[Rfam]
RNA sequence: UGAGCAGACUGUGCGGUAGCGUGAAGCGUGCUUCAUGAGGAAAGUCCGAGCAUCACAGGGCAGGAUAACUGCUAACGGCAGCCGAGGGCGACCUUAGGGCUAGUGCAACAGAAAGAUACUGCCGGUUUCCUUGGAUUCCGGUCAAGGUGGAAAGGUGCGGUAAGAGCGCACCAGAGUGCAGGAGACUGUACUGCUAUGUAAACCCUAUCCGAUGCAACGUCUAUUGGUACGUUUUAUCAUAACAUUUGCCCGAUGGAUAAAGCGUAAUGGCGGCUUGAACUGUAGGGCGACCUACAGGCUAGAUAAAUUAUCGCACACGACAGAACUCGGCUUAUAGGUCUGGUCAUAAA
Numbered sequence: 001u002g003a004g005c006a007g008a009c010u011g012u013g014c015g016g017u018a019g020c021g022u023g024a025a026g027c028g029u030g031c032u033u034c035a036u037g038a039g040g041a042a043a044g045u046c047c048g049a050g051c052a053u054c055a056c057a058g059g060g061c062a063g064g065a066u067a068a069c070u071g072c073u074a075a076c077g078g079c080a081g082c083c084g085a086g087g088g089c090g091a092c093c094u095u096a097g098g099g100c101u102a103g104u105g106c107a108a109c110a111g112a113a114a115g116a117u118a119c120u121g122c123c124g125g126u127u128u129c130c131u132u133g134g135a136u137u138c139c140g141g142u143c144a145a146g147g148u149g150g151a152a153a154g155g156u157g158c159g160g161u162a163a164g165a166g167c168g169c170a171c172c173a174g175a176g177u178g179c180a181g182g183a184g185a186c187u188g189u190a191c192u193g194c195u196a197u198g199u200a201a202a203c204c205c206u207a208u209c210c211g212a213u214g215c216a217a218c219g220u221c222u223a224u225u226g227g228u229a230c231g232u233u234u235u236a237u238c239a240u241a242a243c244a245u246u247u248g249c250c251c252g253a254u255g256g257a258u259a260a261a262g263c264g265u266a267a268u269g270g271c272g273g274c275u276u277g278a279a280c281u282g283u284a285g286g287g288c289g290a291c292c293u294a295c296a297g298g299c300u301a302g303a304u305a306a307a308u309u310a311u312c313g314c315a316c317a318c319g320a321c322a323g324a325a326c327u328c329g330g331c332u333u334a335u336a337g338g339u340c341u342g343g344u345c346a347u348a349a350a
Stems, first nucleotide, its partner, number of pairs: 001346003005342006011335001012315007020037007042333003046330005051214004058251004063210005069081004083097001084095004098205002103203002105199003119146002121142005128135002154172006174194001175192007218272004231263006243255004280297007
The record is a 350-nucleotide sequence from Ruminococcus sp. CAG:403, which matches "Bacterial RNase P class A" in Rfam. Gene Ontology terms of the family: ribonuclease P activity, dimeric ribonuclease P complex and tRNA processing. It scores 270 bits against the family's covariance model. It is annotated as a ribozyme. Ribonuclease P (RNase P) is a ubiquitous endoribonuclease, found in archaea, bacteria and eukarya as well as chloroplasts and mitochondria.